[Rfam]
RNA sequence: UUGACACAAAGACACAAAAAAUUCUCUUUUCAUACAUAUUUAAUAUCAAAAAGAAUUUAUCGUUUUUUACGGAUAUGUAUUA
Numbered sequence: 001u002u003g004a005c006a007c008a009a010a011g012a013c014a015c016a017a018a019a020a021a022u023u024c025u026c027u028u029u030u031c032a033u034a035c036a037u038a039u040u041u042a043a044u045a046u047c048a049a050a051a052a053g054a055a056u057u058u059a060u061c062g063u064u065u066u067u068u069a070c071g072g073a074u075a076u077g078u079a080u081u082a
Stems, first nucleotide, its partner, number of pairs: 008068005019058007027051004
RNA: Streptococcus sRNA SpR14